Overview:
Rfam assigns this 100-nucleotide sequence from Lactococcus lactis to the family "S10-Clostridia ribosomal protein leader". The literature on the family includes a 2020 paper in BMC Microbiol by Eckert and Weinberg, "Discovery of 20 novel ribosomal leader candidates in bacteria and archaea".
RNA sequence: AUGUAGCGACGAAACGAGAGGUUGCGACACACCCGAAGGUAUUGCCAUACCUAACGUGUCGGUUUUCCCGUGGAGCUAGCCUAUUGAAUACAAUAGACGA
Numbered sequence: 001a002u003g004u005a006g007c008g009a010c011g012a013a014a015c016g017a018g019a020g021g022u023u024g025c026g027a028c029a030c031a032c033c034c035g036a037a038g039g040u041a042u043u044g045c046c047a048u049a050c051c052u053a054a055c056g057u058g059u060c061g062g063u064u065u066u067c068c069c070g071u072g073g074a075g076c077u078a079g080c081c082u083a084u085u086g087a088a089u090a091c092a093a094u095a096g097a098c099g100a
Stems, first nucleotide, its partner, number of pairs: 014071003018067004025061005079098001081096005